[Rfam]
RNA sequence: CCGCGGAGUAGAAGCGUUCACCGUUUCGCCGUGAAGACGCCCAACGACGGUGCGGCUUCUGCGGCGUGUCGGCCGGAAAUUGCUCCGAAG
Number, nucleotide and partner (000 for none) at each position: 001c000002c000003g000004c000005g086006g085007a084008g083009u082010a081011g000012a000013a000014g000015c075016g000017u000018u077019c076020a000021c072022c071023g070024u000025u068026u000027c000028g000029c000030c000031g000032u000033g000034a000035a000036g000037a000038c000039g000040c000041c000042c000043a000044a000045c000046g000047a000048c000049g000050g000051u000052g000053c000054g000055g000056c000057u000058u000059c000060u000061g000062c000063g000064g000065c000066g000067u000068g025069u000070c023071g022072g021073c000074c000075g015076g019077a018078a000079a000080u000081u010082g009083c008084u007085c006086c005087g000088a000089a000090g000
Notes: Xanthine riboswitch aptamer (NMT1 RNA): a 90-nucleotide RNA from Variovorax sp. CF079. A reference for the family is Xu et al. (2021), "Insights into xanthine riboswitch structure and metal ion-mediated ligand recognition", Nucleic Acids Res. Lineage of the source: Bacteria > Pseudomonadati > Betaproteobacteria > Burkholderiales > Variovorax. Its family is annotated with purine nucleobase binding in the Gene Ontology.